[Rfam]
This 56-nucleotide RNA sequence from Butyrivibrio hungatei belongs to the Rfam family "S4-Clostridia ribosomal protein leader". Rfam classes the family as a cis-regulatory leader. The organism belongs to Butyrivibrio, within Bacteria. A search with the family's covariance model found it, with a score of 39 bits. Its Rfam clan is "Ribosomal Protein S4 Leader clan".

RNA sequence: GAAAGAUCGGAUUAUACUUUGUCCGAUUGGGUCGAUGAGAUGUGACCCCAAUCAAA
Numbered sequence: 001g002a003a004a005g006a007u008c009g010g011a012u013u014a015u016a017c018u019u020u021g022u023c024c025g026a027u028u029g030g031g032u033c034g035a036u037g038a039g040a041u042g043u044g045a046c047c048c049c050a051a052u053c054a055a056a
Base pairs, nucleotide, nucleotide: 005028006027007026008025009024010023011022012021029048030047031046032045033044